[Rfam]
RNA sequence: CCGCGCUAGUCGGGGAGUUAGCGGUGCCCUGUAUCUGCAACCCGCUAUAGCAGGGAUGAAUCCCGGCCCCCGGAGACAAAAUGUACUGACUGCCCCAUAUAAGCAGCGAUGAUGGAUUGGUCCUGCGCAACGUAGCCCCGUGAACCGUGUCAGGCGGGGAACCGAGCAGCACUAAGCGGACCGCUGCGUGUGCCGCGGGGGUGCCGGUCUUGAGCCGGCUGUAUGGGUAACGGGUAUAUUUUGUGCUUCAAAGGCCGGUGCGCGG
Numbered sequence: 001c002c003g004c005g006c007u008a009g010u011c012g013g014g015g016a017g018u019u020a021g022c023g024g025u026g027c028c029c030u031g032u033a034u035c036u037g038c039a040a041c042c043c044g045c046u047a048u049a050g051c052a053g054g055g056a057u058g059a060a061u062c063c064c065g066g067c068c069c070c071c072g073g074a075g076a077c078a079a080a081a082u083g084u085a086c087u088g089a090c091u092g093c094c095c096c097a098u099a100u101a102a103g104c105a106g107c108g109a110u111g112a113u114g115g116a117u118u119g120g121u122c123c124u125g126c127g128c129a130a131c132g133u134a135g136c137c138c139c140g141u142g143a144a145c146c147g148u149g150u151c152a153g154g155c156g157g158g159g160a161a162c163c164g165a166g167c168a169g170c171a172c173u174a175a176g177c178g179g180a181c182c183g184c185u186g187c188g189u190g191u192g193c194c195g196c197g198g199g200g201g202u203g204c205c206g207g208u209c210u211u212g213a214g215c216c217g218g219c220u221g222u223a224u225g226g227g228u229a230a231c232g233g234g235u236a237u238a239u240u241u242u243g244u245g246c247u248u249c250a251a252a253g254g255c256c257g258g259u260g261c262g263c264g265g
Stems, first nucleotide, its partner, number of pairs: 001265006009057003012030004017025003034054005063258006072249004078242010091229002095226006103219002106215002114210008122199006128190002131188005138179004147172004155164003

The record is a 265-nucleotide RNA from Pseudoflavonifractor sp. An176, which matches "Bacterial large signal recognition particle RNA" in Rfam. The organism belongs to Pseudoflavonifractor, within Bacteria. The literature on the family includes a 2003 paper in Nucleic Acids Res by Rosenblad et al., "SRPDB: Signal Recognition Particle Database". Rfam describes the family as follows. The signal recognition particle (SRP) is a universally conserved ribonucleoprotein involved in the co-translational targeting of proteins to membranes. The family's RNA type in Rfam is non-coding RNA gene. The base pairs follow the family's consensus structure, which is taken from published work.